[Rfam]
RNA sequence: UACAACUUAAGCAACGCAGUCCCAACCUUCUACUACGUCCUUGCUGCCCUUAAGCUAGCGCCAGUGUGAAUAAGCUUCAACAAAAGCAA
Dot-bracket structure: ...................................((..((((((((......)).))))..))..)).....................
This 89-nucleotide RNA sequence from Lysinibacillus odysseyi belongs to the Rfam family "BsrC". By type it is a small RNA. The 301 nucleotide sequence from Kouji Nakamura has been trimmed to a highly conserved ~85 nucleotide long core to form this family. The base pairs follow the family's consensus structure, which was predicted with CMfinder.